[Rfam]
RNA sequence: AACUUUAGCGCCUAGACGACAACAGCUAGAAUGGCCGUGGCGAAGGAGGAUUAUCCCCCGAUGAGGCCACCAUUCCAGCUGUUGUCGUCGAGGCAUUAAUGU
Numbered sequence: 001a002a003c004u005u006u007a008g009c010g011c012c013u014a015g016a017c018g019a020c021a022a023c024a025g026c027u028a029g030a031a032u033g034g035c036c037g038u039g040g041c042g043a044a045g046g047a048g049g050a051u052u053a054u055c056c057c058c059c060g061a062u063g064a065g066g067c068c069a070c071c072a073u074u075c076c077a078g079c080u081g082u083u084g085u086c087g088u089c090g091a092g093g094c095a096u097u098a099a100u101g102u
Base pairs, nucleotide, nucleotide: 002102003101005099006098007097008096010094011093012092013091015089016088017087018086019085020084021083022082023081024080025079026078027077029075030074031073032072033071034070037067038066041063042062045059046058048056049055050054